[Rfam]
Nucleotides: 083
Stems, first nucleotide, its partner, number of pairs: 013046006021083003025079003028040003050072006
Number, partner (000 for none) and nucleotide at each position: 001000a002000a003000u004000g005000c006000u007000u008000u009000g010000a011000u012000g013046g014045g015044g016043g017042u018041c019000a020000u021083a022082g023081c024000a025079g026078a027077a028040g029039c030038a031000u032000u033000c034000a035000u036000g037000u038030u039029g040028u041018g042017a043016c044015c045014c046013c047000u048000g049000u050072c051071a052070g053069g054068u055067a056000a057000u058000a059000c060000c061000u062000g063000a064000u065000a066000a067055u068054a069053c070052c071051u072050g073000u074000g075000a076000a077027u078026u079025c080000g081023g082022c083021u